Record summary: A member of the RNA family "6S / SsrS RNA" from Clostridium sp. chh4-2, 178 nucleotides long. The base pairs follow the family's consensus structure, which is taken from published work. Taxonomically the source falls in Clostridium (Bacteria, Bacillati, Eubacteriales, Clostridiaceae). The literature on the family includes a 2000 paper in Cell by Wassarman and Storz, "6S RNA regulates E. coli RNA polymerase activity". The match comes from Rfam's covariance-model search (76 bits).
[Rfam]
RNA sequence: UAAUUCCUGAAAUGUUCGACACUCUUACCUUUUUUGAACCUACAUUAUGACAUCAGGGAUUCCUAUAUUUGUAAGCGGAUGUCAGGCCUCCUCUGAGUGGAAGGCAGAAGCUUAUAUGCGGUUGCCCACCUAGCGUUGCUAGGCGUCAAUAAGUAAGAACCGGCAUUUUGGGGUUACA
Numbered sequence: 001u002a003a004u005u006c007c008u009g010a011a012a013u014g015u016u017c018g019a020c021a022c023u024c025u026u027a028c029c030u031u032u033u034u035u036g037a038a039c040c041u042a043c044a045u046u047a048u049g050a051c052a053u054c055a056g057g058g059a060u061u062c063c064u065a066u067a068u069u070u071g072u073a074a075g076c077g078g079a080u081g082u083c084a085g086g087c088c089u090c091c092u093c094u095g096a097g098u099g100g101a102a103g104g105c106a107g108a109a110g111c112u113u114a115u116a117u118g119c120g121g122u123u124g125c126c127c128a129c130c131u132a133g134c135g136u137u138g139c140u141a142g143g144c145g146u147c148a149a150u151a152a153g154u155a156a157g158a159a160c161c162g163g164c165a166u167u168u169u170g171g172g173g174u175u176a177c178a
Stems, first nucleotide, its partner, number of pairs: 003175001005173011017162002031152002035148003039143002056127003062121002067117001070116007082104002087100002090097001